[Rfam]
RNA sequence: UGACGGGGGCCCGCACAAGCGGUGGAGUAUGUGGUUUAAUUCGACGCAACGCGCAGAACCUUACCUGGGCUUGACAUCCCGGAGAUCUCCUGGAAACAGGAGAGUGCUAUCAUUAGGUAGAAUCCGGAGACAGGUGCUGCAUGGCUGUCGUCAGCUCGUGUCGUGAGAUGUUGGGUUAAGUCCCGCAACGAGCGCAACCCUCGCCUUUAGUUGCCAUCAUUAAGUUGGGCACUCUAGAGGGACCGCCGGUGUCAAACCGGAGGAAGGUGGGGAUGACGUCAAGUCCUCAUGGCCUUUAUGUCCAGGGCUACACACGUACUACAAUGGCCGGUACAGAGGGCAGCGACUUAGCGAUAAGUAGCCAAUCUCAAAAAGCCGGUCUCAGUCCGGAUUGGAGUCUGCAACUCGACUCCAUGAAGUUGGAAUCGCUAGUAAUCGCGGAUCAGCAUGCCGCGGUGAAUACGUUCCCGGGCCUUGUACACACCGCCCGUCACACCACGAAAGUCGGUUGUUCCAGAAGCGGUUGAGCUAACCUUUUAGGAGGCAGGCUGCCAAGGAAUGAUCGGUAAUUGGGGUGAAGUCGUAACAAGG
Numbered sequence: 001u002g003a004c005g006g007g008g009g010c011c012c013g014c015a016c017a018a019g020c021g022g023u024g025g026a027g028u029a030u031g032u033g034g035u036u037u038a039a040u041u042c043g044a045c046g047c048a049a050c051g052c053g054c055a056g057a058a059c060c061u062u063a064c065c066u067g068g069g070c071u072u073g074a075c076a077u078c079c080c081g082g083a084g085a086u087c088u089c090c091u092g093g094a095a096a097c098a099g100g101a102g103a104g105u106g107c108u109a110u111c112a113u114u115a116g117g118u119a120g121a122a123u124c125c126g127g128a129g130a131c132a133g134g135u136g137c138u139g140c141a142u143g144g145c146u147g148u149c150g151u152c153a154g155c156u157c158g159u160g161u162c163g164u165g166a167g168a169u170g171u172u173g174g175g176u177u178a179a180g181u182c183c184c185g186c187a188a189c190g191a192g193c194g195c196a197a198c199c200c201u202c203g204c205c206u207u208u209a210g211u212u213g214c215c216a217u218c219a220u221u222a223a224g225u226u227g228g229g230c231a232c233u234c235u236a237g238a239g240g241g242a243c244c245g246c247c248g249g250u251g252u253c254a255a256a257c258c259g260g261a262g263g264a265a266g267g268u269g270g271g272g273a274u275g276a277c278g279u280c281a282a283g284u285c286c287u288c289a290u291g292g293c294c295u296u297u298a299u300g301u302c303c304a305g306g307g308c309u310a311c312a313c314a315c316g317u318a319c320u321a322c323a324a325u326g327g328c329c330g331g332u333a334c335a336g337a338g339g340g341c342a343g344c345g346a347c348u349u350a351g352c353g354a355u356a357a358g359u360a361g362c363c364a365a366u367c368u369c370a371a372a373a374a375g376c377c378g379g380u381c382u383c384a385g386u387c388c389g390g391a392u393u394g395g396a397g398u399c400u401g402c403a404a405c406u407c408g409a410c411u412c413c414a415u416g417a418a419g420u421u422g423g424a425a426u427c428g429c430u431a432g433u434a435a436u437c438g439c440g441g442a443u444c445a446g447c448a449u450g451c452c453g454c455g456g457u458g459a460a461u462a463c464g465u466u467c468c469c470g471g472g473c474c475u476u477g478u479a480c481a482c483a484c485c486g487c488c489c490g491u492c493a494c495a496c497c498a499c500g501a502a503a504g505u506c507g508g509u510u511g512u513u514c515c516a517g518a519a520g521c522g523g524u525u526g527a528g529c530u531a532a533c534c535u536u537u538u539a540g541g542a543g544g545c546a547g548g549c550u551g552c553c554a555a556g557g558a559a560u561g562a563u564c565g566g567u568a569a570u571u572g573g574g575g576u577g578a579a580g581u582c583g584u585a586a587c588a589a590g591g
Stems, first nucleotide, its partner, number of pairs: 001481002003478003007475007015465002019429005024322001026320008034311002040055001042053002064306007077130002079127005086103007105122001107120005133295002136293004142289002144284003147280001149278002154193006160169003172185004199272004204240007214229002218227002243263002246260005326381007338369003343362002348357003388419001393414007435457007484590001486587001489583002494577004499572003504567012520552006528545003533541002
Dot-bracket structure: (((((.(((((((.((..((((((.((((((((((....(.((........)).)........(((((((......(((((((..(((((((....))))))).(.(((((....))))).)))))).))..((.((((..((((((.((...(((((((((....)))..((((......))))..)))))).....((((.(((((((...((..((......))))....)))))))..((.(((((.....))))).)).....))))....)).).)))...))))))))....)))))))...)).)))))))).)...(((((((.....(((..((...(((....)))...))....))).....)))))))......(....(((((((........)))))))....).....))))).....(((((((.........)))))))......))...)))))))))).))..(.(..((...((((.(((..((((((((((((....((((((..(((..((.....)).))).))))))...))))))))))))..))).))))....))...)..).
RNA: Bacterial small subunit ribosomal RNA, nucleotides 935 to 1525
Organism: Desulfurivibrio alkaliphilus